[Rfam]
RNA sequence: CAUACUUGCACGGGGUGCUUUCUUAAAAACAGAAGGCUGAGAUAAUACCCGAUAAACCUGAUACGGAUAAUACCGGCGUAGGGAUGCAUGGGCUCAAUGUU
Numbered sequence: 001c002a003u004a005c006u007u008g009c010a011c012g013g014g015g016u017g018c019u020u021u022c023u024u025a026a027a028a029a030c031a032g033a034a035g036g037c038u039g040a041g042a043u044a045a046u047a048c049c050c051g052a053u054a055a056a057c058c059u060g061a062u063a064c065g066g067a068u069a070a071u072a073c074c075g076g077c078g079u080a081g082g083g084a085u086g087c088a089u090g091g092g093c094u095c096a097a098u099g100u101u
Stems, first nucleotide, its partner, number of pairs: 007088004011051004016045001017037007057082004064075003